[Rfam]
RNA sequence: GGAUGUGAGGGUGAUCUGGCUGCGACAUCUGUCACCCCAUUGAUUGCCAGGGUUGAUUCGGCUGAUCUGGCUGGCUAGGCGGGUGUCCCCUUCCUCCCUCACCGCUCCAUGUGCGUCCCUCCCGAAACUGUGCGCUCGGUCGAAGAGGACGACCAUCCCCGAUAGAGGAGGACCGGUCUUCGGUCAAGGGUAUACGAGUAGCUGCGCUCCCCUGCUAGAACCUCCAAACAAGCUCUCAAGGUCCAUUUGUAGGAGAACGUAGGGUAGUCAUCCCAUCACCCUUUGCUCUCUUUUCGGACUCGGCCCGCCUGCACCC
Dot-bracket structure: (((.(((((((.((...((....((((((((((.(((((..(((((((...........))).)))))))..))...)))))))))).)).))..)))))))...))).......((((((((((..(.....).))))(((....(((......))).)))..)))).)).............................(.(...((.((((((......((((..(((((.............))))).))))...)))))).))..).)............................................
Numbered sequence: 001g002g003a004u005g006u007g008a009g010g011g012u013g014a015u016c017u018g019g020c021u022g023c024g025a026c027a028u029c030u031g032u033c034a035c036c037c038c039a040u041u042g043a044u045u046g047c048c049a050g051g052g053u054u055g056a057u058u059c060g061g062c063u064g065a066u067c068u069g070g071c072u073g074g075c076u077a078g079g080c081g082g083g084u085g086u087c088c089c090c091u092u093c094c095u096c097c098c099u100c101a102c103c104g105c106u107c108c109a110u111g112u113g114c115g116u117c118c119c120u121c122c123c124g125a126a127a128c129u130g131u132g133c134g135c136u137c138g139g140u141c142g143a144a145g146a147g148g149a150c151g152a153c154c155a156u157c158c159c160c161g162a163u164a165g166a167g168g169a170g171g172a173c174c175g176g177u178c179u180u181c182g183g184u185c186a187a188g189g190g191u192a193u194a195c196g197a198g199u200a201g202c203u204g205c206g207c208u209c210c211c212c213u214g215c216u217a218g219a220a221c222c223u224c225c226a227a228a229c230a231a232g233c234u235c236u237c238a239a240g241g242u243c244c245a246u247u248u249g250u251a252g253g254a255g256a257a258c259g260u261a262g263g264g265u266a267g268u269c270a271u272c273c274c275a276u277c278a279c280c281c282u283u284u285g286c287u288c289u290c291u292u293u294u295c296g297g298a299c300u301c302g303g304c305c306c307g308c309c310u311g312c313a314c315c316c
Stems, first nucleotide, its partner, number of pairs: 001108003005102007013093002018090002024087010035074002037070003042067004046062003116171002118168004122139004128134001140162003147158003201272001203270001207267002210264006222255004228250005
Shown here is a 316-nucleotide RNA sequence from Gorilla gorilla, a member of the family "7SK RNA". Pairs were carried over by alignment from the consensus structure, which is taken from published work. About the family: 7SK was discovered as an abundant small nuclear RNA in the mid-70s but a possible function has only recently been suggested. Two independent studies have found that 7SK RNA binds the CDK9/cyclin T complex (known as elongation factor P-TEFb). P-TEFb activates transcription by phosphorylating the C-terminal domain of RNA polymerase II. This process is negatively regulated by the 7SK RNP. The secondary structure of 7SK RNA shown here was proposed by Wasserman and Steitz on the basis of chemical modification and enzymatic cleavage experiments. Taxonomically the source falls in Gorilla gorilla (Eukaryota, Deuterostomia, Teleostomi, Eutheria). The literature on the family includes a 1991 paper in Mol Cell Biol by Wassarman and Steitz, "Structural analyses of the 7SK ribonucleoprotein (RNP), the most abundant human small RNP of unknown function". It is annotated as a non-coding RNA gene. It scores 316 bits against the family's covariance model.